A member of the RNA family "PyrR binding site" from Heyndrickxia sporothermodurans, 109 nucleotides long. This family represents the PyrR binding site and terminator structure. This RNA structure is found upstream of a variety of genes involved in pyrimidine biosynthesis and transport. The alignment also includes a portion of the antiterminator structure. Gene Ontology terms of the family: pyrimidine nucleobase transport and pyrimidine nucleobase biosynthetic process. A search with the family's covariance model found it, with a score of 61 bits. Taxonomically the source falls in Heyndrickxia (Bacteria, Bacillati, Bacilli, Bacillaceae). By type it is a cis-regulatory element.
RNA sequence: AUCACCUUUUAAGUGAAGUCCAGAGAGACUUACAAGGGUGUUUCAUUCAAUGUGUACAUGAAGUUACACAUUAAAAAAACGCCCUAAUUUAAGAUAGGGCGUUUUUUUU
Numbered sequence: 001a002u003c004a005c006c007u008u009u010u011a012a013g014u015g016a017a018g019u020c021c022a023g024a025g026a027g028a029c030u031u032a033c034a035a036g037g038g039u040g041u042u043u044c045a046u047u048c049a050a051u052g053u054g055u056a057c058a059u060g061a062a063g064u065u066a067c068a069c070a071u072u073a074a075a076a077a078a079a080c081g082c083c084c085u086a087a088u089u090u091a092a093g094a095u096a097g098g099g100c101g102u103u104u105u106u107u108u109u
Base pairs, nucleotide, nucleotide: 003040004039005038006037007036008035009034016031017030018029019028020027046075047074049072050071051070052069053068054067055066056065077104078103079102080101081100082099083098084097085096086095088093